[Rfam]
The family of this 77-nucleotide RNA sequence from Alligator sinensis is "Mammalian CPEB3 ribozyme". The organism belongs to Alligator, within Eukaryota. It scores 43 bits against the family's covariance model.
RNA sequence: CGUUGAAAGUUUGGGACCACAGCAAAAGUGCUCGUGGCACAGCCCUGCUAGAUGUUAACAAAUCUGCAAAUUCUACU
Numbered sequence: 001c002g003u004u005g006a007a008a009g010u011u012u013g014g015g016a017c018c019a020c021a022g023c024a025a026a027a028g029u030g031c032u033c034g035u036g037g038c039a040c041a042g043c044c045c046u047g048c049u050a051g052a053u054g055u056u057a058a059c060a061a062a063u064c065u066g067c068a069a070a071u072u073c074u075a076c077u
Stems, first nucleotide, its partner, number of pairs: 013045003017042001021077002024074001026072002028040003049066005055060001